A member of the RNA family "MIR5269 microRNA precursor family" from Medicago truncatula, 79 nucleotides long. The family has 2 seed sequences and 389 matches in Rfam 15.1. The match comes from Rfam's covariance-model search (71 bits). Gene Ontology terms of the family: RISC complex and miRNA-mediated post-transcriptional gene silencing.
[Rfam]
RNA sequence: UUGUUUUAAAUCAUUGUGGAUCUACACUUUGAAAAUAAAACCCACACAAAAUGGUGUGACAUGCAUUGAUUUCAUCCAA
Numbered sequence: 001u002u003g004u005u006u007u008a009a010a011u012c013a014u015u016g017u018g019g020a021u022c023u024a025c026a027c028u029u030u031g032a033a034a035a036u037a038a039a040a041c042c043c044a045c046a047c048a049a050a051a052u053g054g055u056g057u058g059a060c061a062u063g064c065a066u067u068g069a070u071u072u073c074a075u076c077c078a079a
Stems, first nucleotide, its partner, number of pairs: 001079003006074001008072006015065004023056002025053002028050004